[Rfam]
RNA sequence: CCUGUCGUCGACAGGUCAUCGGAAUGUGGUCCCUCGGGACUGAACCGGCAA
Numbered sequence: 001c002c003u004g005u006c007g008u009c010g011a012c013a014g015g016u017c018a019u020c021g022g023a024a025u026g027u028g029g030u031c032c033c034u035c036g037g038g039a040c041u042g043a044a045c046c047g048g049c050a051a
Stems, first nucleotide, its partner, number of pairs: 001015005020047003028041005

The family of this 51-nucleotide RNA sequence is "eL15-Euryarchaeota ribosomal protein leader". On this family, see Eckert and Weinberg, BMC Microbiol 2020: "Discovery of 20 novel ribosomal leader candidates in bacteria and archaea". Pairs were carried over by alignment from the consensus structure, which is taken from published work.